RNA sequence: GAGCUUAUGAUGAUAAUUUUUGAUAAUCUUAGCGGAUUUCAGUGAGGCCUUAGGGUGAAUGAUCUGAUUGUUACACACACUGAGGCUC
Numbered sequence: 001g002a003g004c005u006u007a008u009g010a011u012g013a014u015a016a017u018u019u020u021u022g023a024u025a026a027u028c029u030u031a032g033c034g035g036a037u038u039u040c041a042g043u044g045a046g047g048c049c050u051u052a053g054g055g056u057g058a059a060u061g062a063u064c065u066g067a068u069u070g071u072u073a074c075a076c077a078c079a080c081u082g083a084g085g086c087u088c
Stems, first nucleotide, its partner, number of pairs: 001088005
RNA: Small nucleolar RNA R11/Z151